Betaproteobacteria toxic small RNA: a 65-nucleotide sequence from Advenella faeciporci. Rfam 15.1 lists 951 matches to the family in 508 species. About the family: Overexpression in amino aid rich medium attenuates growth, suggesting role in repressing amino acid intake and metabolism. Pairs were carried over by alignment from the consensus structure, which was predicted with WAR.
[Rfam]
RNA sequence: UGUCUCCUCCACCCUCCUCCUUUGGUGGAUUUUGCCCAAAAUCUUACGAUUUUGGGCAUUUUUUU
Numbered sequence: 001u002g003u004c005u006c007c008u009c010c011a012c013c014c015u016c017c018u019c020c021u022u023u024g025g026u027g028g029a030u031u032u033u034g035c036c037c038a039a040a041a042u043c044u045u046a047c048g049a050u051u052u053u054g055g056g057c058a059u060u061u062u063u064u065u
Base pairs, nucleotide, nucleotide: 008029009028010027011026012025013024033058034057035056036055037054038053039052040051